This 122-nucleotide sequence from Rubrivivax albus belongs to the Rfam family "Burkholderia RNA 11". The source organism's lineage runs through Bacteria, Pseudomonadati, Pseudomonadota, Burkholderiales and Rubrivivax. Co-purified with Hfq, expression confirmed by Northern blot. Predicted target marZ. Overlaps coding sequence. On this family, see Ramos et al., Genomics 2013: "Experimental identification of small non-coding regulatory RNAs in the opportunistic human pathogen Burkholderia cenocepacia J2315". Pairs were carried over by alignment from the consensus structure, which was predicted with RNAfold.

RNA sequence: GCAACCUGCGCUUGGCCUACGGGCAGGUGGCGGUGUUCCGCUCGCUGCUGGGCAUCUCGUGGAUGUGGUUCUUCGGCGCGGUGUUCCUCUCGCAGUUCCCGGCCUUCGCGCGCGACGUGCUG
Numbered sequence: 001g002c003a004a005c006c007u008g009c010g011c012u013u014g015g016c017c018u019a020c021g022g023g024c025a026g027g028u029g030g031c032g033g034u035g036u037u038c039c040g041c042u043c044g045c046u047g048c049u050g051g052g053c054a055u056c057u058c059g060u061g062g063a064u065g066u067g068g069u070u071c072u073u074c075g076g077c078g079c080g081g082u083g084u085u086c087c088u089c090u091c092g093c094a095g096u097u098c099c100c101g102g103c104c105u106u107c108g109c110g111c112g113c114g115a116c117g118u119g120c121u122g
Stems, first nucleotide, its partner, number of pairs: 010049001012047001014045001021038005051121005057115005063105001065103001067099002071095002074092003078088001080087002